terC RNA: a 57-nucleotide RNA sequence from Rhizobium sp. LC145. The match comes from Rfam's covariance-model search (50 bits). The family's consensus secondary structure is taken from published work. It is annotated as a cis-regulatory element. Lineage of the source: Bacteria > Pseudomonadati > Alphaproteobacteria > Rhizobiaceae > Rhizobium.
[Rfam]
Nucleotides: 057
Base pairs, nucleotide, nucleotide: 006051007050008049009048010047011046012045022040023039024038025037026036027035
Number, partner (000 for none) and nucleotide at each position: 001000g002000g003000u004000g005000g006051g007050a008049u009048c010047c011046g012045g013000g014000c015000c016000c017000c018000u019000c020000u021000g022040g023039c024038g025037u026036a027035u028000u029000c030000c031000g032000g033000a034000c035027a036026u037025g038024c039023g040022u041000g042000a043000u044000g045012u046011c047010g048009g049008a050007u051006u052000c053000c054000c055000c056000u057000u